This 105-nucleotide sequence from Tengunoibacter tsumagoiensis belongs to the Rfam family "SAM riboswitch aptamer (S box leader)".
RNA sequence: CUCUCAUCAAGAGAGGUGGAGGGAAACGGCCCGAUGAAGCCCGGCAACCCGCUUGUCCUUACAGGAAGGGUGCCAAUUCCGGCGGUAUAUACCGCAAGAUGAGGG
Numbered sequence: 001c002u003c004u005c006a007u008c009a010a011g012a013g014a015g016g017u018g019g020a021g022g023g024a025a026a027c028g029g030c031c032c033g034a035u036g037a038a039g040c041c042c043g044g045c046a047a048c049c050c051g052c053u054u055g056u057c058c059u060u061a062c063a064g065g066a067a068g069g070g071u072g073c074c075a076a077u078u079c080c081g082g083c084g085g086u087a088u089a090u091a092c093c094g095c096a097a098g099a100u101g102a103g104g105g
Stems, first nucleotide, its partner, number of pairs: 001105008013042001015041003021032003027081003043074004048070002052064002078097001083094004
Background:
NCBI's taxonomy places the organism under Bacteria, Bacillati, Ktedonobacterales, Dictyobacteraceae, Tengunoibacter. Rfam links the family to the GO term regulation of gene expression.